[Rfam]
RNA sequence: GGGUCAAUGAUAAGAACUCGUAUUGUCUUUAAGACAGACAAUGACCUAAAAAUCAUGUACAAGAUAAUCACACUGAGGCUC
Numbered sequence: 001g002g003g004u005c006a007a008u009g010a011u012a013a014g015a016a017c018u019c020g021u022a023u024u025g026u027c028u029u030u031a032a033g034a035c036a037g038a039c040a041a042u043g044a045c046c047u048a049a050a051a052a053u054c055a056u057g058u059a060c061a062a063g064a065u066a067a068u069c070a071c072a073c074u075g076a077g078g079c080u081c
Stems, first nucleotide, its partner, number of pairs: 001081004005075002008072002

Notes
Rfam assigns this 81-nucleotide sequence from Suricata suricatta to the family "Small nucleolar RNA SNORD115". By type it is a C/D-box small nucleolar RNA. A reference for the family is Cavaille et al. (2000), "Identification of brain-specific and imprinted small nucleolar RNA genes exhibiting an unusual genomic organization", Proc Natl Acad Sci U S A. It scores 68 bits against the family's covariance model. The source organism's lineage runs through Eukaryota, Chordata, Sarcopterygii, Feliformia and Suricata.